[Rfam]
This 293-nucleotide sequence from Stentor coeruleus belongs to the Rfam family "Metazoan signal recognition particle RNA". Lineage of the source: Eukaryota > Alveolata > Heterotrichea > Heterotrichida > Stentor. The match comes from Rfam's covariance-model search (110 bits). Pairs were carried over by alignment from the consensus structure, which is taken from published work. By type it is a non-coding RNA gene. The literature on the family includes a 2002 paper in Curr Opin Struct Biol by Wild et al., "Towards the structure of the mammalian signal recognition particle".

RNA sequence: UCUGAAGAGGGUAGCGACUCUUUGUAACACAAGUGUGGGACUUGGCUGACUGGCGGCAUGUAAGGGUCAUUGUGGUUUUCCACUUACGGGGUAUGUCGAGAGUCUGUCCUAGCCAUAUCAGGGGUCGUGGGUGUGAAUAUCUGGAAGGGUAGACACGCUCAUGUUAAAGAGGGGGGGAACGCUUGAGGCUGGAAACAGAGCAGAGAUAACUCCCCGUCCUUGAUUAUGGAAGGAUCGCAGAUUUGAGUACUCUAGGUUAAUCAUGUGAAACCUGCAGGUCCACAGAAGGCUUU
Dot-bracket structure: (((((((((........))))))....(((....))))))...((((..(((..((..(..(.(..(((..((((((.....((((...(((((.(...((((((((((...(((.(((((((((((((((((((..(((((....)))))..))))))))))((...))((((((.....(((....(((....)))....)))....)))))))))))))))..)))..))...))))))))).))))).))))..)))))).)))..).)...)..)).)))..))))..